The record is a 122-nucleotide RNA sequence from Alicyclobacillus tolerans, which matches "c-di-AMP riboswitch aptamer (ydaO/yuaA leader)" in Rfam. The base pairs follow the family's consensus structure. This family represents a conserved RNA structure found upstream of the ydaO and yuaA genes in Bacillus subtilis and related genes in other bacteria. The ydaO/yuaA element is thought to act as a genetic 'off' switch for the ydaO and yuaA genes in its native state. It is believed that the element may be triggered during osmotic shock leading to activation of ydaO, a predicted amino acid transporter gene, and members of the yuaA-yubG operon which code for KtrA and KtrB K+ transporters. Taxonomically the source falls in Alicyclobacillus (Bacteria, Bacilli, Caryophanales, Alicyclobacillaceae). Rfam links the family to the GO terms cyclic-di-AMP binding and regulation of gene expression.

RNA sequence: ACCAAAAAACAGCCGAAUCCCAUUUAGGGUACGGGGGAUACAAUUUGGGGUGAAUGCGCCAACGCGCAUGGGCGACCUCCGUCCUAACCCGUCAACUAACCUCGGAGGCAAGGGGAGGACUU
Numbered sequence: 001a002c003c004a005a006a007a008a009a010c011a012g013c014c015g016a017a018u019c020c021c022a023u024u025u026a027g028g029g030u031a032c033g034g035g036g037g038a039u040a041c042a043a044u045u046u047g048g049g050g051u052g053a054a055u056g057c058g059c060c061a062a063c064g065c066g067c068a069u070g071g072g073c074g075a076c077c078u079c080c081g082u083c084c085u086a087a088c089c090c091g092u093c094a095a096c097u098a099a100c101c102u103c104g105g106a107g108g109c110a111a112g113g114g115g116a117g118g119a120c121u122u
Base pairs, nucleotide, nucleotide: 012109013108014107019029020028032104033103034102035101036100041047042046048090049089050088056067057066058065059064070084071083072082073081